[Rfam]
RNA sequence: AUCUUUGAUCUGGGUGAGAGAAACGCGUAUCGAUUUGGUUCAUGAUCAUGGCUCAUACUCUUCCCACCACUUACCAAUUAGAUUUGGAGAUGUUGUGUUGAGGUUUCAUCGAUACGGGUCGCUCUCACCUAGACUAAAGUUGC
Numbered sequence: 001a002u003c004u005u006u007g008a009u010c011u012g013g014g015u016g017a018g019a020g021a022a023a024c025g026c027g028u029a030u031c032g033a034u035u036u037g038g039u040u041c042a043u044g045a046u047c048a049u050g051g052c053u054c055a056u057a058c059u060c061u062u063c064c065c066a067c068c069a070c071u072u073a074c075c076a077a078u079u080a081g082a083u084u085u086g087g088a089g090a091u092g093u094u095g096u097g098u099u100g101a102g103g104u105u106u107c108a109u110c111g112a113u114a115c116g117g118g119u120c121g122c123u124c125u126c127a128c129c130u131a132g133a134c135u136a137a138a139g140u141u142g143c
Base pairs, nucleotide, nucleotide: 003139004138005137006136007135009133010132011131012130013129014128015127016126017125018124019123020122023119024118026116027115028114029113030112031111032110033109034108037105038104

A member of the RNA family "MIR4416 microRNA precursor family" from Cajanus cajan, 143 nucleotides long. The organism belongs to Cajanus, within Eukaryota. The family has 3 seed sequences and 13 matches in Rfam 15.1.